[Rfam]
RNA: Editing element of GABA-3 exon 9
Organism: Salmo trutta
RNA sequence: AAGGUGGCCUAUGCCACAGCUAUGGACUGGUUCAUGGCGGUAUGCUAUGCCUUU
Numbered sequence: 001a002a003g004g005u006g007g008c009c010u011a012u013g014c015c016a017c018a019g020c021u022a023u024g025g026a027c028u029g030g031u032u033c034a035u036g037g038c039g040g041u042a043u044g045c046u047a048u049g050c051c052u053u054u
Stems, first nucleotide, its partner, number of pairs: 001054003006051003010047002013045002016041002019038002022035005